RNA: Glycine riboswitch aptamer
Organism: Massilia glaciei
RNA sequence: CGGCUUAACUCUGGAGAGCGGCCGCGGCGUCACGCCGGCGGCCCACCGAAGGGGCAGGCGGAACCCGUUCCGCUAUCUCUCAGGUACCAAGGACAGAGGGGCACGC
Numbered sequence: 001c002g003g004c005u006u007a008a009c010u011c012u013g014g015a016g017a018g019c020g021g022c023c024g025c026g027g028c029g030u031c032a033c034g035c036c037g038g039c040g041g042c043c044c045a046c047c048g049a050a051g052g053g054g055c056a057g058g059c060g061g062a063a064c065c066c067g068u069u070c071c072g073c074u075a076u077c078u079c080u081c082a083g084g085u086a087c088c089a090a091g092g093a094c095a096g097a098g099g100g101g102c103a104c105g106c
Stems, first nucleotide, its partner, number of pairs: 006101001009098005020043006045085003048081002052079003058073004